Ribosomal protein L20 leader: a 124-nucleotide RNA from Furfurilactobacillus rossiae. Taxonomically the source falls in Furfurilactobacillus rossiae (Bacteria, Bacillati, Bacilli, Lactobacillaceae). It scores 72 bits against the family's covariance model. A reference for the family is Zengel and Lindahl (1994), "Diverse mechanisms for regulating ribosomal protein synthesis in Escherichia coli", Prog Nucleic Acid Res Mol Biol. From the family's description: This family is a putative r-protein leader autoregulatory structure found in B. subtilis and other low-GC Gram-positive bacteria. It is located in the 5' untranslated regions of mRNAs encoding initiation factor 3 followed by ribosomal proteins L35 and L20 (infC-rpmI-rplT). A Rho-independent transcription terminator structure that is probably involved in regulation is included at the 3' end.
RNA sequence: UGAGAAAAGCAGAAGCACCCGCUUCUCGCCUUGGUAAUUUUGUUGCCGGGCUAAAGAUGAGUUGAACCGUACUGUUUCAGUGCGGACAGCGGGUGGCGAUGGCCAUCCGCUAUUUUUCUGUUUA
Numbered sequence: 001u002g003a004g005a006a007a008a009g010c011a012g013a014a015g016c017a018c019c020c021g022c023u024u025c026u027c028g029c030c031u032u033g034g035u036a037a038u039u040u041u042g043u044u045g046c047c048g049g050g051c052u053a054a055a056g057a058u059g060a061g062u063u064g065a066a067c068c069g070u071a072c073u074g075u076u077u078c079a080g081u082g083c084g085g086a087c088a089g090c091g092g093g094u095g096g097c098g099a100u101g102g103c104c105a106u107c108c109g110c111u112a113u114u115u116u117u118c119u120g121u122u123u124a
Stems, first nucleotide, its partner, number of pairs: 011026006028051003034046002036043001088111010